[Rfam]
RNA sequence: CUAUAUGUACCCUGUAGAACCGAAUUUGUGUUAAUAGAUAACAAUCGCAAGUACGUCUCUACGGGAAUACAUGGG
Numbered sequence: 001c002u003a004u005a006u007g008u009a010c011c012c013u014g015u016a017g018a019a020c021c022g023a024a025u026u027u028g029u030g031u032u033a034a035u036a037g038a039u040a041a042c043a044a045u046c047g048c049a050a051g052u053a054c055g056u057c058u059c060u061a062c063g064g065g066a067a068u069a070c071a072u073g074g075g
Stems, first nucleotide, its partner, number of pairs: 002073003006069002010065003016060003021055002024052007
Shown here is a 75-nucleotide RNA sequence from Oncorhynchus kisutch, a member of the family "mir-10 microRNA precursor family". The family's consensus secondary structure was predicted with PFOLD. It scores 55 bits against the family's covariance model. Gene Ontology terms of the family: miRNA-mediated post-transcriptional gene silencing and RISC complex. A reference for the family is Lee and Ambros (2001), "An extensive class of small RNAs in Caenorhabditis elegans", Science.